[Rfam]
RNA sequence: AUCGGCGACCGGGCCCCUCUGGCGAAAGUGUCGGCGCUUUCGUGAUGUCGGCGCCGCCG
Numbered sequence: 001a002u003c004g005g006c007g008a009c010c011g012g013g014c015c016c017c018u019c020u021g022g023c024g025a026a027a028g029u030g031u032c033g034g035c036g037c038u039u040u041c042g043u044g045a046u047g048u049c050g051g052c053g054c055c056g057c058c059g
Stems, first nucleotide, its partner, number of pairs: 006053002009051004022043008
Dot-bracket structure: .....((.((((.........((((((((......))))))))....))))))......
Rfam assigns this 59-nucleotide RNA sequence from Salipiger abyssi to the family "terC RNA". Rfam 15.1 lists 1,112 matches to the family in 772 species. It scores 57 bits against the family's covariance model. The family's consensus secondary structure is taken from published work.